Overview
Small nucleolar RNA snoR27: an 87-nucleotide RNA from Hevea brasiliensis. It scores 66 bits against the family's covariance model. NCBI's taxonomy places the organism under Eukaryota, Euphyllophyta, Gunneridae, Malpighiales, Hevea. On this family, see Brown et al., RNA 2001: "Multiple snoRNA gene clusters from Arabidopsis". Gene Ontology terms of the family: RNA processing and nucleolus.
[Rfam]
RNA sequence: UGUGGAUCAAUGAUGUUACUGAUAUUCUGCGUUAUCUAUCUGCAAAUUGUUUGAAUUGAAGAUAACUGUAACAUGCUGAGAUCCUUC
Numbered sequence: 001u002g003u004g005g006a007u008c009a010a011u012g013a014u015g016u017u018a019c020u021g022a023u024a025u026u027c028u029g030c031g032u033u034a035u036c037u038a039u040c041u042g043c044a045a046a047u048u049g050u051u052u053g054a055a056u057u058g059a060a061g062a063u064a065a066c067u068g069u070a071a072c073a074u075g076c077u078g079a080g081a082u083c084c085u086u087c
Stems, first nucleotide, its partner, number of pairs: 002086001004084004